[Rfam]
RNA sequence: CUCUGGAGAGCGUCCGGGCGCAGGUUGUGCAAGGGCCACCAAAGGGGAAAACCUUCUAUCAAGGCAAACUCUCAGGUACCAGGACAGAG
Number, nucleotide and partner (000 for none) at each position: 001c089002u088003c087004u086005g085006g000007a000008g000009a000010g000011c000012g036013u035014c034015c033016g000017g000018g000019c000020g000021c000022a000023g000024g000025u000026u000027g000028u000029g000030c000031a000032a000033g015034g014035g013036c012037c000038a077039c076040c075041a000042a072043a000044g000045g071046g070047g069048a000049a000050a000051a000052c063053c000054u000055u000056c000057u000058a000059u000060c000061a000062a000063g052064g000065c000066a000067a000068a000069c047070u046071c045072u042073c000074a000075g040076g039077u038078a000079c000080c000081a000082g000083g000084a000085c005086a004087g003088a002089g001
This 89-nucleotide RNA sequence from Bacillus sp. V59.32b belongs to the Rfam family "Glycine riboswitch aptamer". Lineage of the source: Bacteria > Bacillota > Caryophanales > Bacillaceae > Bacillus. Its family is annotated with glycine biosynthetic process in the Gene Ontology. It scores 43 bits against the family's covariance model.